[Rfam]
RNA sequence: GAGACGGCAUCCGCAGGAGCCGAACUCGAUUUGAAAUCACACUAAAAUUCAAUUUCUGCUUUGAUCCUUCUGGACGGAGACUGAAGA
Numbered sequence: 001g002a003g004a005c006g007g008c009a010u011c012c013g014c015a016g017g018a019g020c021c022g023a024a025c026u027c028g029a030u031u032u033g034a035a036a037u038c039a040c041a042c043u044a045a046a047a048u049u050c051a052a053u054u055u056c057u058g059c060u061u062u063g064a065u066c067c068u069u070c071u072g073g074a075c076g077g078a079g080a081c082u083g084a085a086g087a
Stems, first nucleotide, its partner, number of pairs: 001027003005022004010018002056083001058081001059079005065074003
Rfam assigns this 87-nucleotide sequence from Peptoclostridium acidaminophilum to the family "pan motif".
The source organism's lineage runs through Bacteria, Bacillati, Bacillota, Clostridia and Peptoclostridium acidaminophilum.
It scores 52 bits against the family's covariance model.